Overview:
This 123-nucleotide RNA from Microcebus murinus belongs to the Rfam family "Small nucleolar RNA SNORA11". NCBI's taxonomy places the organism under Eukaryota, Metazoa, Theria, Eutheria, Microcebus. The family's consensus secondary structure was predicted with RNAalifold. From the family's description: U107 (SNORA11) is a member of the H/ACA class of snoRNAs that guide the sites of modification of uridines to pseudouridines. This snoRNA was identified by RT-PCR from blood cells and its expression confirmed by Northern blot analysis. There is no predicted target for this guide snRNA. A reference for the family is Gu et al. (2005), "A novel experimental approach for systematic identification of box H/ACA snoRNAs from eukaryotes", Nucleic Acids Res.
RNA sequence: CGCUCAGAGCAGGGGGCCUGAAGAAUGGCUCUUCUGUUUACAACACACCCAACAGGAAUCUCGGGACACUGUCAUGAGGGACACAAAACUUGUGGCCUCCCUAUGAACAAAUGCCCUACAUGU
Numbered sequence: 001c002g003c004u005c006a007g008a009g010c011a012g013g014g015g016g017c018c019u020g021a022a023g024a025a026u027g028g029c030u031c032u033u034c035u036g037u038u039u040a041c042a043a044c045a046c047a048c049c050c051a052a053c054a055g056g057a058a059u060c061u062c063g064g065g066a067c068a069c070u071g072u073c074a075u076g077a078g079g080g081a082c083a084c085a086a087a088a089c090u091u092g093u094g095g096c097c098u099c100c101c102u103a104u105g106a107a108c109a110a111a112u113g114c115c116c117u118a119c120a121u122g123u
Stems, first nucleotide, its partner, number of pairs: 002044001007039009016029003063116003070109003075105002078098003082094005